Rfam assigns this 101-nucleotide RNA sequence from Pan troglodytes to the family "mir-1236 microRNA precursor family". Its family is annotated with RISC complex and miRNA-mediated post-transcriptional gene silencing in the Gene Ontology.
RNA sequence: GUGAGUGACAGGGGAAAUGGGGAUGGACUGGAAGUGGGCAGCAUGGAGCUGACCUUCAUCAUGGCUUGGCCAACAUAAUGCCUCUUCCCCUUGUCUCUCCA
Numbered sequence: 001g002u003g004a005g006u007g008a009c010a011g012g013g014g015a016a017a018u019g020g021g022g023a024u025g026g027a028c029u030g031g032a033a034g035u036g037g038g039c040a041g042c043a044u045g046g047a048g049c050u051g052a053c054c055u056u057c058a059u060c061a062u063g064g065c066u067u068g069g070c071c072a073a074c075a076u077a078a079u080g081c082c083u084c085u086u087c088c089c090c091u092u093g094u095c096u097c098u099c100c101a
Stems, first nucleotide, its partner, number of pairs: 001100001003099003007095004011090006019083003023079002029075002032067004036055003039051004